[Rfam]
RNA sequence: UUAUCGCCGGCCUUUUGGCUAAGAUCAUGUGUAUAUCUCUUAUCAGUUUAAUAUCUGAUACGCCCCCAUCGGGGGACCUUAUAUUAAACGGAUUUUUGGGCCAGGAGUCGGAAGAGGCUCGCCUCCGUCCGCUCCAAGCAUCGACCCGUAUUGCAGUGCAUCCGGGACCGUGCGCCUCCU
Numbered sequence: 001u002u003a004u005c006g007c008c009g010g011c012c013u014u015u016u017g018g019c020u021a022a023g024a025u026c027a028u029g030u031g032u033a034u035a036u037c038u039c040u041u042a043u044c045a046g047u048u049u050a051a052u053a054u055c056u057g058a059u060a061c062g063c064c065c066c067c068a069u070c071g072g073g074g075g076a077c078c079u080u081a082u083a084u085u086a087a088a089c090g091g092a093u094u095u096u097u098g099g100g101c102c103a104g105g106a107g108u109c110g111g112a113a114g115a116g117g118c119u120c121g122c123c124u125c126c127g128u129c130c131g132c133u134c135c136a137a138g139c140a141u142c143g144a145c146c147c148g149u150a151u152u153g154c155a156g157u158g159c160a161u162c163c164g165g166g167a168c169c170g171u172g173c174g175c176c177u178c179c180u
Base pairs, nucleotide, nucleotide: 004024005023009020010019011018012017041060042059043058044057045056046055062077063075064074065073066072067071104135105134106133107132108131110129111128114125115124116123117122138173139172140171141170143168145166146165147164148163150161
The family of this 180-nucleotide RNA sequence from Megalops atlanticus is "U2 spliceosomal RNA". The family's consensus secondary structure is taken from published work. Gene Ontology terms of the family: U2 snRNP, mRNA branch site recognition and pre-mRNA branch point binding. The source organism's lineage runs through Eukaryota, Deuterostomia, Vertebrata, Actinopteri and Megalops. Rfam's curators write: U2 is a small nuclear RNA (snRNA) component of the spliceosome (involved in pre-mRNA splicing). For this family Rfam cites "The uRNA database" (Zwieb, Nucleic Acids Res, 1997).